[Rfam]
A member of the RNA family "SAM riboswitch aptamer (S box leader)" from Bacillus pumilus, 110 nucleotides long. The sequence is in the family's curated seed alignment. NCBI's taxonomy places the organism under Bacteria, Bacillati, Bacillota, Bacillus, Bacillus pumilus.
RNA sequence: CUCUUAUCAAGAGAGGCAGAGGGACUGGCCCUAUGACGCCCGGCAACCGUUUCUACUAUAGAAAUUGGUGCUAAUUCCUGCAAAGCUGUUACAGCUUUGACAGAUAAGAG
Number, nucleotide and partner (000 for none) at each position: 001c110002u109003c108004u107005u106006a105007u104008c103009a000010a000011g000012a000013g041014a000015g040016g039017c038018a000019g000020a000021g031022g030023g029024a000025c080026u000027g078028g077029c023030c022031c021032u000033a000034u000035g000036a000037c000038g017039c016040c015041c013042g072043g071044c070045a069046a000047c068048c067049g000050u064051u063052u062053c061054u000055a000056c000057u000058a000059u000060a000061g053062a052063a051064a050065u000066u000067g048068g047069u045070g044071c043072u042073a000074a000075u000076u102077c028078c027079u000080g025081c099082a098083a097084a096085g095086c094087u000088g000089u000090u000091a000092c000093a000094g086095c085096u084097u083098u082099g081100a000101c000102a076103g008104a007105u006106a005107a004108g003109a002110g001